Annotation
A member of the RNA family "Small nucleolar RNA SNORA22" from Molossus molossus, 132 nucleotides long. Rfam 15.1 lists 883 matches to the family in 606 species. The match comes from Rfam's covariance-model search (99 bits). Its family is annotated with RNA processing and nucleolus in the Gene Ontology. The family's RNA type in Rfam is H/ACA-box small nucleolar RNA. ACA22 is a member of the H/ACA class of snoRNA that guide the sites of modification of uridines to pseudouridines. The organism belongs to Molossus, within Eukaryota.
RNA sequence: UUGCCCAGUGAACACCAAGUGCGCUUUAGCCUUCCCUUGGCUUUGACUCUAUGCUAGAGACUGUCUGUUCUUUCCCUCUGCUUUGAAAGGACUCUUUAUUCUUCUAAACGUAUUCAGAAAGUCAGCUUAUUA
Numbered sequence: 001u002u003g004c005c006c007a008g009u010g011a012a013c014a015c016c017a018a019g020u021g022c023g024c025u026u027u028a029g030c031c032u033u034c035c036c037u038u039g040g041c042u043u044u045g046a047c048u049c050u051a052u053g054c055u056a057g058a059g060a061c062u063g064u065c066u067g068u069u070c071u072u073u074c075c076c077u078c079u080g081c082u083u084u085g086a087a088a089g090g091a092c093u094c095u096u097u098a099u100u101c102u103u104c105u106a107a108a109c110g111u112a113u114u115c116a117g118a119a120a121g122u123c124a125g126c127u128u129a130u131u132a
Stems, first nucleotide, its partner, number of pairs: 003054002007050002010048001013045002015040005021034001023032001056071004060066001077118004081110001083108002085105001087103005